[Rfam]
RNA sequence: GAAGAUCGCAACGGUUCUUAUCGUAGUGGUAGAGCGCAUGGGCAGGAUGGCGUAGCCAUCCGGCGAAAGCACCCAUGCGCGGAAAGUAGGCUCCUGACGGGGCCUUUUUUUAUGCCCGGAA
Numbered sequence: 001g002a003a004g005a006u007c008g009c010a011a012c013g014g015u016u017c018u019u020a021u022c023g024u025a026g027u028g029g030u031a032g033a034g035c036g037c038a039u040g041g042g043c044a045g046g047a048u049g050g051c052g053u054a055g056c057c058a059u060c061c062g063g064c065g066a067a068a069g070c071a072c073c074c075a076u077g078c079g080c081g082g083a084a085a086g087u088a089g090g091c092u093c094c095u096g097a098c099g100g101g102g103c104c105u106u107u108u109u110u111u112a113u114g115c116c117c118g119g120a121a
Base pairs, nucleotide, nucleotide: 007028009026029117034080035079036078037077038076039075040074041073042072045061046060047059048058049057050056063070064069086106088105089104090103091102092101093100094099